[Rfam]
RNA sequence: UAAAGCUAGGUUUGUGGUUGAAAGUCGAUGCCAGUCGCAGGCAAAACGAUCCACGUAAGUUAAACAAAAGGUUUAAUGAUCAUGGUGCGGCUUAGAGGUGAGUCCUGCCACAAAAGUGAGAGGGUUAGUAGUGAGAGGUUGAUUCUGGGUAGCAAAAGCUCCAGCAGGCGAGUGUGGGGUCAAAGACCAGGUCAACUAGCUUUA
Numbered sequence: 001u002a003a004a005g006c007u008a009g010g011u012u013u014g015u016g017g018u019u020g021a022a023a024g025u026c027g028a029u030g031c032c033a034g035u036c037g038c039a040g041g042c043a044a045a046a047c048g049a050u051c052c053a054c055g056u057a058a059g060u061u062a063a064a065c066a067a068a069a070g071g072u073u074u075a076a077u078g079a080u081c082a083u084g085g086u087g088c089g090g091c092u093u094a095g096a097g098g099u100g101a102g103u104c105c106u107g108c109c110a111c112a113a114a115a116g117u118g119a120g121a122g123g124g125u126u127a128g129u130a131g132u133g134a135g136a137g138g139u140u141g142a143u144u145c146u147g148g149g150u151a152g153c154a155a156a157a158g159c160u161c162c163a164g165c166a167g168g169c170g171a172g173u174g175u176g177g178g179g180u181c182a183a184a185g186a187c188c189a190g191g192u193c194a195a196c197u198a199g200c201u202u203u204a
Stems, first nucleotide, its partner, number of pairs: 001204009012195003015189005028175003031041001033092007050085002055080001058077001060075001062073002083182001104168005109118003122161004131153002137146002

The family of this 204-nucleotide RNA sequence from Clostridium frigidicarnis is "raiA RNA". NCBI's taxonomy places the organism under Bacteria, Bacillati, Bacillota, Clostridia, Clostridium. The match comes from Rfam's covariance-model search (200 bits).